Plastid-clpP 5UTR RNA: a 57-nucleotide RNA sequence from Lactuca saligna. On this family, see Richter et al., Plant Commun 2023: "Retrograde signaling in plants: A critical review focusing on the GUN pathway and beyond". Rfam 15.1 lists 2,105 matches to the family in 526 species. The base pairs follow the family's consensus structure, which was predicted with LocARNA. Plastid clpP is a non-coding RNA (ncRNA) recognised in plastids. It was found in the prime untranslated region (5UTR) of a protease complex subunit (clpP) in plastids, suggesting a posible cis-regulatory function. The source organism's lineage runs through Eukaryota, Embryophyta, Mesangiospermae, Cichorioideae and Lactuca.
RNA sequence: AAUUUUGUUUGUAUGAACAAAGAGAAGCAGAUUUAUUCUAUACUGUAUCAAUACGGA
Numbered sequence: 001a002a003u004u005u006u007g008u009u010u011g012u013a014u015g016a017a018c019a020a021a022g023a024g025a026a027g028c029a030g031a032u033u034u035a036u037u038c039u040a041u042a043c044u045g046u047a048u049c050a051a052u053a054c055g056g057a
Stems, first nucleotide, its partner, number of pairs: 003022002006019005045054003